[Rfam]
RNA sequence: ACGCUGGCCGCAUGUUCGCUGGCGUUGCCGGCAGCAUGCCCAGGCAGUCGAGACCUUCAAGACUGCGGCGCGGUUCGCCGUGCUGGUUGCUUCGUUCUCCGGGCGCACCCGCGUCCAUCCACCUCACCCUCAAGGGACAGACCUCCCUUGCGGG
Number, nucleotide and partner (000 for none) at each position: 001a000002c000003g000004c000005u000006g000007g000008c000009c000010g000011c038012a037013u036014g035015u033016u000017c000018g032019c031020u030021g029022g028023c027024g000025u000026u000027g023028c022029c021030g020031g019032c018033a015034g000035c014036a013037u012038g011039c000040c000041c000042a000043g000044g066045c065046a064047g063048u062049c061050g000051a000052g088053a087054c086055c085056u000057u000058c000059a000060a000061g049062a048063c047064u046065g045066c044067g084068g083069c082070g081071c080072g079073g078074u000075u000076c000077g000078c073079c072080g071081u070082g069083c068084u067085g055086g054087u053088u052089g000090c000091u000092u000093c000094g000095u000096u000097c000098u000099c000100c000101g000102g000103g000104c000105g000106c000107a000108c000109c000110c000111g000112c000113g000114u000115c000116c000117a000118u000119c000120c000121a000122c000123c154124u153125c152126a000127c000128c000129c000130u000131c150132a149133a148134g147135g146136g145137a144138c000139a000140g000141a000142c000143c000144u137145c136146c135147c134148u133149u132150g131151c000152g125153g124154g123
RNA: radC RNA
Organism: Acidovorax sp. JS42